[Rfam]
RNA sequence: GGUGGUUCUCAGGUGAUGCACCCUGGAAUCAGGCUCCCUCCUCUCUGGUUCUGGGUGAGUCACACAAGAACCGCA
Dot-bracket structure: .((.(((((...(((((.(((((.(((((((((..........)))))))))))))).)))))...))))).)).
Numbered sequence: 001g002g003u004g005g006u007u008c009u010c011a012g013g014u015g016a017u018g019c020a021c022c023c024u025g026g027a028a029u030c031a032g033g034c035u036c037c038c039u040c041c042u043c044u045c046u047g048g049u050u051c052u053g054g055g056u057g058a059g060u061c062a063c064a065c066a067a068g069a070a071c072c073g074c075a
Stems, first nucleotide, its partner, number of pairs: 002074002005071005013063005019057005025052009
The family of this 75-nucleotide RNA from Myotis lucifugus is "mir-9223 microRNA precursor family". Pairs were carried over by alignment from the consensus structure, which was predicted with RNAalifold. NCBI's taxonomy places the organism under Eukaryota, Sarcopterygii, Theria, Chiroptera, Myotis. Its family is annotated with RISC complex and miRNA-mediated post-transcriptional gene silencing in the Gene Ontology.